Background
Small nucleolar RNA snR191: a 288-nucleotide RNA sequence from Zygotorulaspora mrakii. A reference for the family is Badis et al. (2003), "A snoRNA that guides the two most conserved pseudouridine modifications within rRNA confers a growth advantage in yeast", RNA. The base pairs follow the family's consensus structure, which was predicted with WAR. Its Rfam clan is "SNORA74 clan".
[Rfam]
RNA sequence: UACCAAAGCUCUUAGUCAGGGUGCUUUCGAGGUUUUUACAAUAAAACCAUCCCACGAAAGUGCCUGUUACAGUUUUGGAAGAUUAAUAUUACUCGCUUUGUCCGCAUCUUUCGUUUUGAAAGAGCUAGGACAAUCUACGGUGAACCUCUGUUUUAGAGGCAAACCUGAAGAUUAUUAUGAGUAAUGAGGUUCUUCAAGAGUUGAGCUAUGUUUUUUUGCGAGUGAAUUUUCGAAUUCACCUUCAUAAAGUUUCCAUACAUUUUGCUCGUAGUAAAGAACCCCACAUCC
Numbered sequence: 001u002a003c004c005a006a007a008g009c010u011c012u013u014a015g016u017c018a019g020g021g022u023g024c025u026u027u028c029g030a031g032g033u034u035u036u037u038a039c040a041a042u043a044a045a046a047c048c049a050u051c052c053c054a055c056g057a058a059a060g061u062g063c064c065u066g067u068u069a070c071a072g073u074u075u076u077g078g079a080a081g082a083u084u085a086a087u088a089u090u091a092c093u094c095g096c097u098u099u100g101u102c103c104g105c106a107u108c109u110u111u112c113g114u115u116u117u118g119a120a121a122g123a124g125c126u127a128g129g130a131c132a133a134u135c136u137a138c139g140g141u142g143a144a145c146c147u148c149u150g151u152u153u154u155a156g157a158g159g160c161a162a163a164c165c166u167g168a169a170g171a172u173u174a175u176u177a178u179g180a181g182u183a184a185u186g187a188g189g190u191u192c193u194u195c196a197a198g199a200g201u202u203g204a205g206c207u208a209u210g211u212u213u214u215u216u217u218g219c220g221a222g223u224g225a226a227u228u229u230u231c232g233a234a235u236u237c238a239c240c241u242u243c244a245u246a247a248a249g250u251u252u253c254c255a256u257a258c259a260u261u262u263u264g265c266u267c268g269u270a271g272u273a274a275a276g277a278a279c280c281c282c283a284c285a286u287c288c
Stems, first nucleotide, its partner, number of pairs: 003078005019065010032042003089184006098133006107123006138167001139165002145159006186282001188280002191277004202268005208260004215249003